The family of this 220-nucleotide RNA sequence from Takifugu rubripes is "Small nucleolar RNA SNORA73 family".
Pairs were carried over by alignment from the consensus structure, which is taken from published work.
Clan: snR30-U17 clan.
Rfam links the family to the GO terms nucleolus and RNA processing.
Rfam classes the family as an H/ACA-box small nucleolar RNA.
Rfam describes the family as follows. U17 (SNORA73A and SNORA73B) also known as E1 belongs to the H/ACA class of small nucleolar RNAs (snoRNAs). Vertebrate U17 is intron-encoded and ranges in length from 200-230 nucleotides, longer than most snoRNAs. It is one of the most abundant snoRNAs in human cells and is essential for the cleavage of pre-rRNA within the 5' external transcribed spacer (ETS). This cleavage leads to the formation of 18S rRNA. Regions of the U17 RNA are complementary to rRNA and act as guides for RNA/RNA interactions, although these regions do not seem to be well conserved between organisms.

RNA sequence: CCGACGUGGACAUCCAGCGAGCUGCUCUCCUGGCUCUGUCCUGGUGGCAGUAUGGGAGCGUAGCUUUUCAGCAGAGACGUACAUUCCCGUUCCACACCGUCGGAGAGAAAGCUCUGUCCCCGGCCUCUGGCUGGGGUGGACGAGCGUCCUGUAUAUUCCUACAUCUUCCCAGAGUCCUACUGGACCGUUACUGGGGAGCUAAACCAUGCAGUGCACAAAC
Numbered sequence: 001c002c003g004a005c006g007u008g009g010a011c012a013u014c015c016a017g018c019g020a021g022c023u024g025c026u027c028u029c030c031u032g033g034c035u036c037u038g039u040c041c042u043g044g045u046g047g048c049a050g051u052a053u054g055g056g057a058g059c060g061u062a063g064c065u066u067u068u069c070a071g072c073a074g075a076g077a078c079g080u081a082c083a084u085u086c087c088c089g090u091u092c093c094a095c096a097c098c099g100u101c102g103g104a105g106a107g108a109a110a111g112c113u114c115u116g117u118c119c120c121c122g123g124c125c126u127c128u129g130g131c132u133g134g135g136g137u138g139g140a141c142g143a144g145c146g147u148c149c150u151g152u153a154u155a156u157u158c159c160u161a162c163a164u165c166u167u168c169c170c171a172g173a174g175u176c177c178u179a180c181u182g183g184a185c186c187g188u189u190a191c192u193g194g195g196g197a198g199c200u201a202a203a204c205c206a207u208g209c210a211g212u213g214c215a216c217a218a219a220c
Stems, first nucleotide, its partner, number of pairs: 001103006008041005014033003019027003044095004054088004058082001060080002064074001149211006165198006174185004